Shown here is a 261-nucleotide RNA sequence from Salipaludibacillus agaradhaerens, a member of the family "BsrG". On this family, see Saito et al., Gene 2008: "Novel small RNA-encoding genes in the intergenic regions of Bacillus subtilis". The source organism's lineage runs through Bacteria, Bacillati, Caryophanales, Bacillaceae and Salipaludibacillus. A search with the family's covariance model found it, with a score of 72 bits. Rfam links the family to the GO terms autolysis and toxin activity. About the family: bsrE, bsrG and bsrH pair through intermolecular interactions with antisense sRNAs. They form type I toxin/antitoxin system that includes an mRNA encoding for a short, toxic peptide (bsrE, bsrG and bsrH) and an antitoxin that is comprised of an antisense RNA. bsrG encodes a 39-amino-acid toxin, and the 180 nucleotide antisense sRNA called SR4 acts as the antitoxin (they overlap by 123 nucleotides). SR4 interaction with the 3'UTR of bsrG RNA promotes bsrG degradation and inhibits its translation.
[Rfam]
RNA sequence: UGGUAGUUUAGUAACUCAUAGGGGGUUGGCGCACCUUCCGAAAGGAGGUGAUGCCUAUAUGGUGAGUGUGACAGAAGCGUUAACAUUAAUGAUCUCGUUUGGGAUGUUAAUCGUGGCGUUGUUGACAUUCGAUCAUAAAAAAUAAGCCCCCACACGUAUGAGUUAACGGCUCUGUGGGAAGGCUUAUUUGUCUAACCCUUUGCCAAUCCCCUUUGAAGGGAACUGAGCUAUUACGGACCGUUAGUGUUAGCCGCACUAGCG
Dot-bracket structure: .(.(.(.((.(((.((((((.(.(.((....((.(((((....)))))))..........(.(.((((.........((..........))..........(..............)..))))).).................)).).......).))))))..........((..............))..........))).))((((.......)))).).)..)..........(((((((((.....)))))))))